[Rfam]
RNA: Repression of heat shock gene expression (ROSE) element
RNA sequence: UCGGUCGCCGGAGUGGGACCGACGAUGUCAGGGAGCGUCAGGCUUCUUGGCGCUCUCGUGUCUAUGUUGCUCCAAGGAGGAUGUAGCUAUGAGAA
Numbered sequence: 001u002c003g004g005u006c007g008c009c010g011g012a013g014u015g016g017g018a019c020c021g022a023c024g025a026u027g028u029c030a031g032g033g034a035g036c037g038u039c040a041g042g043c044u045u046c047u048u049g050g051c052g053c054u055c056u057c058g059u060g061u062c063u064a065u066g067u068u069g070c071u072c073c074a075a076g077g078a079g080g081a082u083g084u085a086g087c088u089a090u091g092a093g094a095a
Stems, first nucleotide, its partner, number of pairs: 001022006008016002034054008055093006062086007070079003